[Rfam]
RNA sequence: UCACAAAGCAUUGCACCCAGGAUCUGGUCUACCAGACAUUGUACCUGGAGCUUUUUUUUUUUUUUUUUUAUGGAAU
Numbered sequence: 001u002c003a004c005a006a007a008g009c010a011u012u013g014c015a016c017c018c019a020g021g022a023u024c025u026g027g028u029c030u031a032c033c034a035g036a037c038a039u040u041g042u043a044c045c046u047g048g049a050g051c052u053u054u055u056u057u058u059u060u061u062u063u064u065u066u067u068u069u070a071u072g073g074a075a076u
Base pairs, nucleotide, nucleotide: 005054006053007052008051009050017048018047019046020045023036024035025034026033